[Rfam]
The family of this 169-nucleotide RNA sequence from Paenalicyclobacillus mengziensis is "glmS glucosamine-6-phosphate activated ribozyme aptamer". It scores 82 bits against the family's covariance model. Rfam classes the family as a riboswitch. From the family's description: This entry contains a glucosamine-6-phosphate activated ribozyme that is found in the mRNA for GlmS. GlmS is an enzyme that uses fructose-6-phosphate and glutamine to generate glucosamine-6-phosphate. The base pairs follow the family's consensus structure, which is taken from published work.

RNA sequence: GUUGCAUGAAAAGCGCCCGGGCUGAGGAGUGACGGAGAGAUUUUCCUCAGUUGACGCGGUGGGGGUUGGCGAACCAUUCGGCGGGUGCCCCCCGGUGUGAGGCCGCACCGAACACAGACCCUGAAAUCUGAUGGGUGACCGGCAGGACAAAGGGACUGUAGGCUCUGUA
Numbered sequence: 001g002u003u004g005c006a007u008g009a010a011a012a013g014c015g016c017c018c019g020g021g022c023u024g025a026g027g028a029g030u031g032a033c034g035g036a037g038a039g040a041u042u043u044u045c046c047u048c049a050g051u052u053g054a055c056g057c058g059g060u061g062g063g064g065g066u067u068g069g070c071g072a073a074c075c076a077u078u079c080g081g082c083g084g085g086u087g088c089c090c091c092c093c094g095g096u097g098u099g100a101g102g103c104c105g106c107a108c109c110g111a112a113c114a115c116a117g118a119c120c121c122u123g124a125a126a127u128c129u130g131a132u133g134g135g136u137g138a139c140c141g142g143c144a145g146g147a148c149a150a151a152g153g154g155a156c157u158g159u160a161g162g163c164u165c166u167g168u169a
Stems, first nucleotide, its partner, number of pairs: 020052008029043001061092005070080003093110006114159004119154002128145003132141003